Rfam assigns this 107-nucleotide sequence from Octodon degus to the family "Small nucleolar RNA SNORD90". Rfam describes the family as follows. snoRNA HBII-295 belongs to the family of C/D snoRNAs. A reference for the family is Huttenhofer et al. (2001), "RNomics: an experimental approach that identifies 201 candidates for novel, small, non-messenger RNAs in mouse", EMBO J. The base pairs follow the family's consensus structure, which was predicted with RNAalifold. A search with the family's covariance model found it, with a score of 99 bits. Its family is annotated with RNA processing and nucleolus in the Gene Ontology.
RNA sequence: ACAAAUGUUUUCUAAGUGUCUAAUGAUGAGUUUCAUAGGGCAGAUUCUGAGGUGACAGUUCAGUUCAUCACUGAUGUUCUGUGGAAUCUGAAGACACUUGAAAACCA
Numbered sequence: 001a002c003a004a005a006u007g008u009u010u011u012c013u014a015a016g017u018g019u020c021u022a023a024u025g026a027u028g029a030g031u032u033u034c035a036u037a038g039g040g041c042a043g044a045u046u047c048u049g050a051g052g053u054g055a056c057a058g059u060u061c062a063g064u065u066c067a068u069c070a071c072u073g074a075u076g077u078u079c080u081g082u083g084g085a086a087u088c089u090g091a092a093g094a095c096a097c098u099u100g101a102a103a104a105c106c107a
Base pairs, nucleotide, nucleotide: 013100014099015098016097017096018095019094020093021092030087031086032085033084034083035082036081037080039079040078043075046074047073049071051069052068053067054066055065